This 168-nucleotide RNA sequence from Candidatus Accumulibacter adjunctus belongs to the Rfam family "Group II catalytic intron D1-D4-3". A search with the family's covariance model found it, with a score of 84 bits. On this family, see Bonen and Vogel, Trends Genet 2001: "The ins and outs of group II introns".
[Rfam]
RNA sequence: AGCUGUGCGAGCGGUUGGAACGCCCAAUUCAAGAUGCGGGGCGAUGAACAAGAACCGGAUCUGAGGCGUGAUGCAUCCGGGGCGAGCGGGCACGUGACCGCGAAGCCCUCCAUCUGCGGCCGGGGUGCAUUUUGCAGAUCCGGCGUCCAUGCAGCGAAGGUAACGAGU
Dot-bracket structure: ((((((....)))))).....((.(...(...(.(((((((((...........((((((.....(((.(((((((...((((..((((........))))...))))................))))))).)))..))))))))))).)))).)....)....).))
Numbered sequence: 001a002g003c004u005g006u007g008c009g010a011g012c013g014g015u016u017g018g019a020a021c022g023c024c025c026a027a028u029u030c031a032a033g034a035u036g037c038g039g040g041g042c043g044a045u046g047a048a049c050a051a052g053a054a055c056c057g058g059a060u061c062u063g064a065g066g067c068g069u070g071a072u073g074c075a076u077c078c079g080g081g082g083c084g085a086g087c088g089g090g091c092a093c094g095u096g097a098c099c100g101c102g103a104a105g106c107c108c109u110c111c112a113u114c115u116g117c118g119g120c121c122g123g124g125g126u127g128c129a130u131u132u133u134g135c136a137g138a139u140c141c142g143g144c145g146u147c148c149a150u151g152c153a154g155c156g157a158a159g160g161u162a163a164c165g166a167g168u
Stems, first nucleotide, its partner, number of pairs: 001016006022168002025165001029160001033155001035153004039148005055143006066135003070131007080108004086101004